[Rfam]
RNA sequence: CGAGUCGAGAGGCGCUGCAACGGGUUCCGGCCCGCCACGCUCGGCUCGCUGAACUUCCGCAAGGGCGCCUCCCACUA
Dot-bracket structure: .(((((((............(((((....)))))......)))))))..............................